[Rfam]
RNA sequence: GGUUAUCGAAGGAUUGACCUUAAUUCAUAACCC
Dot-bracket structure: ((((((.(((((.....))))....)))))).)